[Rfam]
RNA sequence: AAUCCCAUUUCAGUACCUUUCAUUCGCUUUACUAUGAAUGGACGGCUAUGCUAAUGGGAUAGAAAAACCCUGUCAUGGUCUGAGGGUGUGGUUAACUUGCUGUGUACCGCACUAAAUAAGAUGACAGAAUAUAUCUAU
Numbered sequence: 001a002a003u004c005c006c007a008u009u010u011c012a013g014u015a016c017c018u019u020u021c022a023u024u025c026g027c028u029u030u031a032c033u034a035u036g037a038a039u040g041g042a043c044g045g046c047u048a049u050g051c052u053a054a055u056g057g058g059a060u061a062g063a064a065a066a067a068c069c070c071u072g073u074c075a076u077g078g079u080c081u082g083a084g085g086g087u088g089u090g091g092u093u094a095a096c097u098u099g100c101u102g103u104g105u106a107c108c109g110c111a112c113u114a115a116a117u118a119a120g121a122u123g124a125c126a127g128a129a130u131a132u133a134u135c136u137a138u
Base pairs, nucleotide, nucleotide: 004058005057006056007055016045017044019042072125073124074123075122090113091112092111

A member of the RNA family "Small nucleolar RNA SNORA29" from Mola mola, 138 nucleotides long. Clan: SNORA20 clan. A reference for the family is Huttenhofer et al. (2001), "RNomics: an experimental approach that identifies 201 candidates for novel, small, non-messenger RNAs in mouse", EMBO J. Rfam 15.1 lists 960 matches to the family in 621 species. The base pairs follow the family's consensus structure, which was predicted with PFOLD. Rfam links the family to the GO terms nucleolus and RNA processing. ACA29 is a member of the H/ACA class of snoRNA that guide the sites of modification of uridines to pseudouridines. Rfam classes the family as an H/ACA-box small nucleolar RNA.